[Rfam]
RNA sequence: UAUGGACAAGGUGAUAGCGCUCGCCUAAACCGCCCCUGGCUUUUUUGAUUUUUACUAAAGGGCUGAUCGCUCCUACUGUUCC
Numbered sequence: 001u002a003u004g005g006a007c008a009a010g011g012u013g014a015u016a017g018c019g020c021u022c023g024c025c026u027a028a029a030c031c032g033c034c035c036c037u038g039g040c041u042u043u044u045u046u047g048a049u050u051u052u053u054a055c056u057a058a059a060g061g062g063c064u065g066a067u068c069g070c071u072c073c074u075a076c077u078g079u080u081c082c
Base pairs, nucleotide, nucleotide: 010025011024012023013022017072019070020069032063033062034061035060
The record is an 82-nucleotide RNA from Leptolyngbya sp. FACHB-321, which matches "Fluoride riboswitch aptamer (crcB RNA motif)" in Rfam. The family's consensus secondary structure is taken from published work. Taxonomically the source falls in Leptolyngbya (Bacteria, Cyanobacteriota, Leptolyngbyales, Leptolyngbyaceae).